[Rfam]
RNA sequence: GUGGGGUAUGGUGACAUGCGCCCUAUAACAGUCGGGGGUAAAAUAGUGGGUUCUUUGUGCGCCAUUGCUGGUGUGCUCACUAUUGCUCUCCCGGUGCCGGUCAUCGUAUCCAAC
Numbered sequence: 001g002u003g004g005g006g007u008a009u010g011g012u013g014a015c016a017u018g019c020g021c022c023c024u025a026u027a028a029c030a031g032u033c034g035g036g037g038g039u040a041a042a043a044u045a046g047u048g049g050g051u052u053c054u055u056u057g058u059g060c061g062c063c064a065u066u067g068c069u070g071g072u073g074u075g076c077u078c079a080c081u082a083u084u085g086c087u088c089u090c091c092c093g094g095u096g097c098c099g100g101u102c103a104u105c106g107u108a109u110c111c112a113a114c
Base pairs, nucleotide, nucleotide: 001114002113004111005110007108008107009106010105011104013102014101015100018097019096020095021094037077038076039075040074049063050062051061
The family of this 114-nucleotide RNA from Neogobius melanostomus is "Potassium channel RNA editing signal". The organism belongs to Neogobius, within Eukaryota. Rfam 15.1 lists 14,095 matches to the family in 1,000 species. Rfam links the family to the GO term adenosine to inosine editing. The match comes from Rfam's covariance-model search (113 bits).